[Rfam]
RNA sequence: UGUAACGGGACAAGGCUUGACUGAGGGGACUGUAGCAUGUAUAGGCGCUGUGCGGGGCUUCGGUUGUACGCGGAUAGGAAUCCCCUCAGG
Numbered sequence: 001u002g003u004a005a006c007g008g009g010a011c012a013a014g015g016c017u018u019g020a021c022u023g024a025g026g027g028g029a030c031u032g033u034a035g036c037a038u039g040u041a042u043a044g045g046c047g048c049u050g051u052g053c054g055g056g057g058c059u060u061c062g063g064u065u066g067u068a069c070g071c072g073g074a075u076a077g078g079a080a081u082c083c084c085c086u087c088a089g090g
Base pairs, nucleotide, nucleotide: 001012002011003010023087024086025085026084027083028082029081031079042076043075046072047071052067053066054065055064
RNA: Retrovirus direct repeat 1 (dr1)
Organism: Alpharetrovirus avileu